Rfam assigns this 118-nucleotide RNA sequence from Streptococcus merionis to the family "Streptococcus sRNA SpR19".
A reference for the family is Mann et al. (2012), "Control of virulence by small RNAs in Streptococcus pneumoniae", PLoS Pathog.
RNA sequence: GCGGUUUUUAGCGAGCCUGAGGUGGUGGAAGUCAGGUGAACCAAGAGACGGAUUGGCGCUUUCGGUACAAUCGUAUACAAAUGAAGUAAUAAAUUAGGGUGGAACCGCGUUUUAAACG
Numbered sequence: 001g002c003g004g005u006u007u008u009u010a011g012c013g014a015g016c017c018u019g020a021g022g023u024g025g026u027g028g029a030a031g032u033c034a035g036g037u038g039a040a041c042c043a044a045g046a047g048a049c050g051g052a053u054u055g056g057c058g059c060u061u062u063c064g065g066u067a068c069a070a071u072c073g074u075a076u077a078c079a080a081a082u083g084a085a086g087u088a089a090u091a092a093a094u095u096a097g098g099g100u101g102g103a104a105c106c107g108c109g110u111u112u113u114a115a116a117c118g
Stems, first nucleotide, its partner, number of pairs: 001108002003105001005103003008099002015066003021063002024060004030054004037048001071084003
A search with the family's covariance model found it, with a score of 85 bits. The source organism's lineage runs through Bacteria, Bacillati, Bacilli, Streptococcaceae and Streptococcus. Pairs were carried over by alignment from the consensus structure, which was predicted with mfold.